[Rfam]
RNA: Actino-pnp RNA
Organism: Nocardiopsis flavescens
RNA sequence: GCCGGUCCUCGGUAGUGGCUCCCGGAAGGUCCCGUCACGGGACCCCGUGGGCUUCGAUCGAUGACCGGC
Numbered sequence: 001g002c003c004g005g006u007c008c009u010c011g012g013u014a015g016u017g018g019c020u021c022c023c024g025g026a027a028g029g030u031c032c033c034g035u036c037a038c039g040g041g042a043c044c045c046c047g048u049g050g051g052c053u054u055c056g057a058u059c060g061a062u063g064a065c066c067g068g069c
Stems, first nucleotide, its partner, number of pairs: 001069007009061005017053005023047003028044007